[Rfam]
RNA sequence: GCAGUCUGAAAAUCACUUCGGGUCUCUUGUGGCCCCUGGUGAGAUAACUGUGCCGACAGCAUAGGGAACAUUAAGCUUAUUGCCCACGGUAACGCGUGUGGGGAGUGAAACCCAUGUUCCCAUAACC
Numbered sequence: 001g002c003a004g005u006c007u008g009a010a011a012a013u014c015a016c017u018u019c020g021g022g023u024c025u026c027u028u029g030u031g032g033c034c035c036c037u038g039g040u041g042a043g044a045u046a047a048c049u050g051u052g053c054c055g056a057c058a059g060c061a062u063a064g065g066g067a068a069c070a071u072u073a074a075g076c077u078u079a080u081u082g083c084c085c086a087c088g089g090u091a092a093c094g095c096g097u098g099u100g101g102g103g104a105g106u107g108a109a110a111c112c113c114a115u116g117u118u119c120c121c122a123u124a125a126c127c
Stems, first nucleotide, its partner, number of pairs: 006050001008048001010045001013042004021034004065120001067118005077108005085098003
RNA: Small nucleolar RNA ACA64
Organism: Arenaria interpres